[Rfam]
BsrG: a 260-nucleotide RNA from Sporosarcina sp. HYO08. bsrE, bsrG and bsrH pair through intermolecular interactions with antisense sRNAs. They form type I toxin/antitoxin system that includes an mRNA encoding for a short, toxic peptide (bsrE, bsrG and bsrH) and an antitoxin that is comprised of an antisense RNA. bsrG encodes a 39-amino-acid toxin, and the 180 nucleotide antisense sRNA called SR4 acts as the antitoxin (they overlap by 123 nucleotides). SR4 interaction with the 3'UTR of bsrG RNA promotes bsrG degradation and inhibits its translation. BsrG interferes with cell envelope biosynthesis, causes membrane invaginations and delocalisation of the cell wall synthesis and initiates autolysis. bsrE RNA encodes 30 amino-acid toxin peptide. Taxonomically the source falls in Sporosarcina (Bacteria, Bacillota, Bacilli, Caryophanales).
Nucleotides: 260
Stems, first nucleotide, its partner, number of pairs: 001224003005220003010202001012200003017157008026147004034055007064126001067123003078091002102117001168186002203215004233260011
Number, partner (000 for none) and nucleotide at each position: 001224g002223u003222a004000a005220u006219a007218g008000a009000a010202u011000a012200g013199g014198u015000a016000a017157c018156u019155c020154a021153a022152g023151g024150a025000u026147g027146g028145u029144u030000g031000g032000c033000a034055c035054a036053c037052u038051c039050c040049c041000g042000u043000a044000u045000g046000a047000a048000a049040g050039g051038g052037g053036g054035u055034g056000g057000u058000g059000c060000u061000a062000a063000u064126g065000u066000c067123a068122g069121u070000c071000u072000u073000c074000g075000a076000a077000u078091c079090a080000u081000u082000a083000a084000u085000g086000c087000u088000u089000a090079u091078g092000c093000u094000u095000a096000c097000u098000u099000u100000u101000g102117g103000c104000g105000u106000g107000u108000u109000a110000a111000u112000c113000g114000u115000a116000u117102c118000g119000a120000u121069a122068c123067u124000u125000u126064c127000a128000u129000u130000u131000a132000a133000c134000c135000a136000u137000a138000a139000a140000a141000a142000a143000u144029a145028a146027c147026c148000c149000a150024u151023c152022c153021u154020u155019g156018a157017g158000u159000u160000a161000a162000c163000g164000g165000c166000u167000c168186a169185a170000u171000u172000a173000g174000g175000a176000u177000g178000g179000a180000u181000u182000a183000u184000u185169u186168u187000u188000u189000u190000c191000u192000c193000c194000a195000a196000a197000c198014g199013c200012c201000g202010a203215u204214c205213c206212c207000c208000u209000u210000g211000a212206g213205g214204g215203a216000a217000c218007c219006u220005g221000c222003u223002g224001u225000u226000a227000c228000a229000a230000u231000u232000g233260g234259u235258c236257a237256u238255u239254c240253g241252a242251u243250g244000c245000g246000c247000g248000a249000a250243c251242a252241u253240c254239g255238a256237a257236u258235g259234g260233c